c-di-GMP-I-GGC riboswitch aptamer: a 93-nucleotide RNA sequence from Paenibacillus sp. yr247. The source organism's lineage runs through Bacteria, Bacillati, Bacilli, Caryophanales and Paenibacillus. For this family Rfam cites "Structural basis of ligand binding by a c-di-GMP riboswitch" (Smith et al., Nat Struct Mol Biol, 2009). The base pairs follow the family's consensus structure, which is taken from published work. It scores 59 bits against the family's covariance model.
RNA sequence: CUCGACAAAGGCAAAGCUGACGAAAGUCAGUGACGCAAAGCUAAAGGGGCUUCCUUGUCCUGAGCAGGACACGCUGCCAGCCAGCUGCCGAAC
Numbered sequence: 001c002u003c004g005a006c007a008a009a010g011g012c013a014a015a016g017c018u019g020a021c022g023a024a025a026g027u028c029a030g031u032g033a034c035g036c037a038a039a040g041c042u043a044a045a046g047g048g049g050c051u052u053c054c055u056u057g058u059c060c061u062g063a064g065c066a067g068g069a070c071a072c073g074c075u076g077c078c079a080g081c082c083a084g085c086u087g088c089c090g091a092a093c
Base pairs, nucleotide, nucleotide: 003090004089011036012035016031017030018029019028020027021026034080039086040085041084042083046082047081048078049077050076